RNA sequence: AAUAAGAGAAUGACAAAUCAGACUUUUUCUCCUGAUUUUUAGUAUUUUUAGUUGAAUUCAAAUUUUGUUAGGAUAAAAAAAGCUGAAAAUCAAGAGGAAAAAAAUUGAUUUGUCAUUCUCCUAUU
Numbered sequence: 001a002a003u004a005a006g007a008g009a010a011u012g013a014c015a016a017a018u019c020a021g022a023c024u025u026u027u028u029c030u031c032c033u034g035a036u037u038u039u040u041a042g043u044a045u046u047u048u049u050a051g052u053u054g055a056a057u058u059c060a061a062a063u064u065u066u067g068u069u070a071g072g073a074u075a076a077a078a079a080a081a082g083c084u085g086a087a088a089a090u091c092a093a094g095a096g097g098a099a100a101a102a103a104a105u106u107g108a109u110u111u112g113u114c115a116u117u118c119u120c121c122u123a124u125u
Stems, first nucleotide, its partner, number of pairs: 001125004006120016024101004029096003033092007041084002045080004

The family of this 125-nucleotide RNA sequence from Gossypium armourianum is "MIR7504 microRNA precursor family". Rfam 15.1 lists 7,343 matches to the family in 61 species. The match comes from Rfam's covariance-model search (92 bits). Lineage of the source: Eukaryota > Viridiplantae > Mesangiospermae > malvids > Gossypium.